[Rfam]
The record is a 78-nucleotide RNA sequence from Streptomyces mobaraensis, which matches "nrdJ RNA" in Rfam.
Rfam's curators put it in the seed alignment.
The base pairs follow the family's consensus structure, which is taken from published work.
The organism belongs to Streptomyces mobaraensis, within Bacteria.
By type it is a small RNA.
RNA sequence: ACCUGCCCGGUGCGCCCCCGCGCACCCGGGCGAACGACACACAUCGCGCCAUGGAAGAAAUGUGCGCACAAGGGCGUU
Number, nucleotide and partner (000 for none) at each position: 001a000002c000003c000004u032005g031006c030007c029008c028009g027010g026011u000012g023013c022014g021015c000016c000017c000018c000019c000020g000021c014022g013023c012024a000025c000026c010027c009028g008029g007030g006031c005032g004033a000034a000035c000036g000037a000038c000039a000040c000041a000042c000043a000044u000045c000046g067047c066048g065049c064050c062051a061052u060053g000054g000055a000056a000057g000058a000059a000060a052061u051062g050063u000064g049065c048066g047067c046068a000069c000070a000071a000072g000073g000074g000075c000076g000077u000078u000